The family of this 179-nucleotide sequence from Boseongicola aestuarii is "Ruegeria cis52 sRNA". The literature on the family includes a 2016 paper in Front Microbiol by Rivers et al., "Experimental Identification of Small Non-Coding RNAs in the Model Marine Bacterium Ruegeria pomeroyi DSS-3". It scores 117 bits against the family's covariance model. Its family is annotated with regulation of gene expression in the Gene Ontology.
RNA sequence: UUCUGAGCGCGUGCUUCAUGACGAUGUUUGGAAAGCUCACGCCUUUCAGGCGCGCGGUACGGAUGUAUUGUGCUGUCAUCACUUCGGUCAUCGACGCGCGGGUCAUACGCGCGAUGUAGCCCAUGCCGUAAAGGGCAAUAGUGAGGACGGGCAGGAAGAAGUUUUCGAAUGUGAUGUCG
Numbered sequence: 001u002u003c004u005g006a007g008c009g010c011g012u013g014c015u016u017c018a019u020g021a022c023g024a025u026g027u028u029u030g031g032a033a034a035g036c037u038c039a040c041g042c043c044u045u046u047c048a049g050g051c052g053c054g055c056g057g058u059a060c061g062g063a064u065g066u067a068u069u070g071u072g073c074u075g076u077c078a079u080c081a082c083u084u085c086g087g088u089c090a091u092c093g094a095c096g097c098g099c100g101g102g103u104c105a106u107a108c109g110c111g112c113g114a115u116g117u118a119g120c121c122c123a124u125g126c127c128g129u130a131a132a133g134g135g136c137a138a139u140a141g142u143g144a145g146g147a148c149g150g151g152c153a154g155g156a157a158g159a160a161g162u163u164u165u166c167g168a169a170u171g172u173g174a175u176g177u178c179g
Base pairs, nucleotide, nucleotide: 004141006139009136010135012133015130016128021124028123030121031120038113040111041110042109046105048103051100052099053098054097055075056074057073058072059071060070061069062068082096084094085093086092146178147177151172152171153170154165155164156163157162